The record is a 143-nucleotide RNA from Salvelinus namaycush, which matches "Small nucleolar RNA SNORD10" in Rfam. The match comes from Rfam's covariance-model search (66 bits). Its family is annotated with RNA processing and nucleolus in the Gene Ontology. Lineage of the source: Eukaryota > Vertebrata > Teleostei > Salmoninae > Salvelinus. A reference for the family is Huttenhofer et al. (2001), "RNomics: an experimental approach that identifies 201 candidates for novel, small, non-messenger RNAs in mouse", EMBO J. Rfam classes the family as a C/D-box small nucleolar RNA.
RNA sequence: GUAUAAUGAUGAAAUCCAUGCGUGUCAACUGACUCUGGAACCCCCUGAGUGUUCUAGUUCUACCACUCAGCGUUCUGUUGGCUGGUGUGUUCUGGACCUCAGGGCUCUGGAACUCAUGAUCAGAUUCCACACUGGCUGAAUAC
Numbered sequence: 001g002u003a004u005a006a007u008g009a010u011g012a013a014a015u016c017c018a019u020g021c022g023u024g025u026c027a028a029c030u031g032a033c034u035c036u037g038g039a040a041c042c043c044c045c046u047g048a049g050u051g052u053u054c055u056a057g058u059u060c061u062a063c064c065a066c067u068c069a070g071c072g073u074u075c076u077g078u079u080g081g082c083u084g085g086u087g088u089g090u091u092c093u094g095g096a097c098c099u100c101a102g103g104g105c106u107c108u109g110g111a112a113c114u115c116a117u118g119a120u121c122a123g124a125u126u127c128c129a130c131a132c133u134g135g136c137u138g139a140a141u142a143c
Stems, first nucleotide, its partner, number of pairs: 001143004043104007